[Rfam]
RNA: tRNA
RNA sequence: GUCCCCAUAGUUAAAUGGAUAUAACAAGCCCCUCCUAAGGGCUAGUUGCAGGUUCGAUCCCUGCUGGGGACG
Number, nucleotide and partner (000 for none) at each position: 001g071002u070003c069004c068005c067006c066007a065008u000009a000010g025011u024012u023013a022014a000015a000016u000017g000018g000019a000020u000021a000022u013023a012024a011025c010026a000027a043028g042029c041030c040031c039032c000033u000034c000035c000036u000037a000038a000039g031040g030041g029042c028043u027044a000045g000046u000047u000048g064049c063050a062051g061052g060053u000054u000055c000056g000057a000058u000059c000060c052061c051062u050063g049064c048065u007066g006067g005068g004069g003070a002071c001072g000